[Rfam]
RNA sequence: AGGUGAUGUCUCCUUACCUAUAUAAACGGAGGCACUCGGUCAUGCUGUGGGUUGAAAUAUACCUUAGACGCUAGUCGUCGUUGGUGUGGUGUGAGGAGGGGUUGGAUGCCCC
Numbered sequence: 001a002g003g004u005g006a007u008g009u010c011u012c013c014u015u016a017c018c019u020a021u022a023u024a025a026a027c028g029g030a031g032g033c034a035c036u037c038g039g040u041c042a043u044g045c046u047g048u049g050g051g052u053u054g055a056a057a058u059a060u061a062c063c064u065u066a067g068a069c070g071c072u073a074g075u076c077g078u079c080g081u082u083g084g085u086g087u088g089g090u091g092u093g094a095g096g097a098g099g100g101g102u103u104g105g106a107u108g109c110c111c112c
Stems, first nucleotide, its partner, number of pairs: 001019004007034007035095004039090008049064004067079004098112005